[Rfam]
Shown here is a 77-nucleotide RNA sequence, a member of the family "nadA riboswitch". The family's RNA type in Rfam is small RNA. Pairs were carried over by alignment from the consensus structure, which is taken from published work.
RNA sequence: GCUUUCAACAUCCCCGUUCCGGAGUCAAGCGAACUGCAGGCGGAAAGCCGCCAUGGUCGCUGUUCGGAGCUGAAAGC
Numbered sequence: 001g002c003u004u005u006c007a008a009c010a011u012c013c014c015c016g017u018u019c020c021g022g023a024g025u026c027a028a029g030c031g032a033a034c035u036g037c038a039g040g041c042g043g044a045a046a047g048c049c050g051c052c053a054u055g056g057u058c059g060c061u062g063u064u065c066g067g068a069g070c071u072g073a074a075a076g077c
Stems, first nucleotide, its partner, number of pairs: 001077007016070007025062001028061005
Dot-bracket structure: (((((((........(((((((..(..(((((........................)))))).))))))))))))))